Notes
The family of this 313-nucleotide RNA from Taxus chinensis is "Plant signal recognition particle RNA". Taxonomically the source falls in Taxus (Eukaryota, Tracheophyta, Cupressales, Taxaceae).
[Rfam]
RNA sequence: GCCGAGCUCAGUAACGCGAGCUUGUGACCCAGGUGGGGGCACACAAGGUUGAGGGACAUGUGAAGCGUGGAACGGGAGGAGGGGAGAUGCGUGGCAUAUUACGCGGCUCGCCCUGGUCCAAGUAGAGAGUUGUUGCAAGGCCCAUCUUCGAAAGAGGAAGGUCUGUCUUGCGGCCUAGAGAGGAGGGUACUGCGUGAGGCUGGUUUUCACAGAGCAACGAUAACCACCCGCUCCCUACAGUGGAAGGAUAACGAGCUGCUUGUCCCUCUUCCCGCAAUCCUCCCGUCCCGCUCAUAAUCGAACAUCAACCUUU
Numbered sequence: 001g002c003c004g005a006g007c008u009c010a011g012u013a014a015c016g017c018g019a020g021c022u023u024g025u026g027a028c029c030c031a032g033g034u035g036g037g038g039g040c041a042c043a044c045a046a047g048g049u050u051g052a053g054g055g056a057c058a059u060g061u062g063a064a065g066c067g068u069g070g071a072a073c074g075g076g077a078g079g080a081g082g083g084g085a086g087a088u089g090c091g092u093g094g095c096a097u098a099u100u101a102c103g104c105g106g107c108u109c110g111c112c113c114u115g116g117u118c119c120a121a122g123u124a125g126a127g128a129g130u131u132g133u134u135g136c137a138a139g140g141c142c143c144a145u146c147u148u149c150g151a152a153a154g155a156g157g158a159a160g161g162u163c164u165g166u167c168u169u170g171c172g173g174c175c176u177a178g179a180g181a182g183g184a185g186g187g188u189a190c191u192g193c194g195u196g197a198g199g200c201u202g203g204u205u206u207u208c209a210c211a212g213a214g215c216a217a218c219g220a221u222a223a224c225c226a227c228c229c230g231c232u233c234c235c236u237a238c239a240g241u242g243g244a245a246g247g248a249u250a251a252c253g254a255g256c257u258g259c260u261u262g263u264c265c266c267u268c269u270u271c272c273c274g275c276a277a278u279c280c281u282c283c284c285g286u287c288c289c290g291c292u293c294a295u296a297a298u299c300g301a302a303c304a305u306c307a308a309c310c311u312u313u
Base pairs, nucleotide, nucleotide: 001040002039003038004023005022006021007020008019009018028037029036030035045312046311047310048309049308050307051306052305054303057300059297064292065291066290067289069287072286073285074284075283076282077281078280079279082273083272084271085270086269089266091265093264094263095262098260103259104258105257106256107255108254109253110252112247113246117244118243119242120241122238123237124236125235127233128232129231130230132174133173134172135171136170137169138168139167140166141165142161143160145158146157147156148155149154175180182228183227185225186224193219194218195217200212201211202210

The match comes from Rfam's covariance-model search (199 bits).
The family's RNA type in Rfam is non-coding RNA gene.
Pairs were carried over by alignment from the consensus structure, which is taken from published work.